Rfam assigns this 57-nucleotide sequence from Hylemonella gracilis to the family "Xanthine riboswitch aptamer (NMT1 RNA)". Gene Ontology term of the family: purine nucleobase binding. Taxonomically the source falls in Hylemonella gracilis (Bacteria, Pseudomonadati, Betaproteobacteria, Burkholderiales).
Nucleotides: 057
Base pairs, nucleotide, nucleotide: 005053006052007051008050009049010048015042018044019043021039022038023037024036026034027033
Number, partner (000 for none) and nucleotide at each position: 001000g002000g003000c004000a005053g006052g007051a008050g009049u010048a011000g012000a013000a014000g015042c016000g017000u018044u019043c020000a021039g022038c023037g024036c025000a026034g027033g028000c029000c030000c031000a032000g033027c034026c035000a036024g037023c038022g039021c040000c041000c042015g043019g044018a045000a046000a047000u048010u049009g050008c051007u052006c053005u054000u055000g056000a057000a
A reference for the family is Yu and Breaker (2020), "A bacterial riboswitch class senses xanthine and uric acid to regulate genes associated with purine oxidation", RNA.